RNA: Group II catalytic intron D1-D4-3
Organism: Roseospira goensis
RNA sequence: GUCCCCGCGAGGCGGGGUCUGAAGGAAGCUGGAGGCAAAGUCCUGGCCCGACGAACAGGAACCGCAUACGAGGCGCCGAGACCCUGGGCGAGGGGGCAUGGAGACCCGAAGCCCGAUGUCACCCGGAGGGCCUGGGCGUAGAUGCGGCGGGCGCUGUCCAACGCCGCCGUC
Numbered sequence: 001g002u003c004c005c006c007g008c009g010a011g012g013c014g015g016g017g018u019c020u021g022a023a024g025g026a027a028g029c030u031g032g033a034g035g036c037a038a039a040g041u042c043c044u045g046g047c048c049c050g051a052c053g054a055a056c057a058g059g060a061a062c063c064g065c066a067u068a069c070g071a072g073g074c075g076c077c078g079a080g081a082c083c084c085u086g087g088g089c090g091a092g093g094g095g096g097c098a099u100g101g102a103g104a105c106c107c108g109a110a111g112c113c114c115g116a117u118g119u120c121a122c123c124c125g126g127a128g129g130g131c132c133u134g135g136g137c138g139u140a141g142a143u144g145c146g147g148c149g150g151g152c153g154c155u156g157u158c159c160a161a162c163g164c165c166g167c168c169g170u171c
Base pairs, nucleotide, nucleotide: 002015003014005012006011028171030169031168032167035164036163040158042156045154046152047151048150049149050148062147063146064145065144066143067142073139074138075137077135079133080132082130083129086114087113088112089111092107093106094105